[Rfam]
RNA sequence: UGCUGAGGCCCUCCUUGGGCGUUUCCUCCCUAGACUUGGCCGCCAGCAAUGGCGGCCUUUUUCUUGGCCGCC
Numbered sequence: 001u002g003c004u005g006a007g008g009c010c011c012u013c014c015u016u017g018g019g020c021g022u023u024u025c026c027u028c029c030c031u032a033g034a035c036u037u038g039g040c041c042g043c044c045a046g047c048a049a050u051g052g053c054g055g056c057c058u059u060u061u062u063c064u065u066g067g068c069c070g071c072c
Stems, first nucleotide, its partner, number of pairs: 008020004038057008
RNA: Makes More Granules Regulator RNA (mmgR)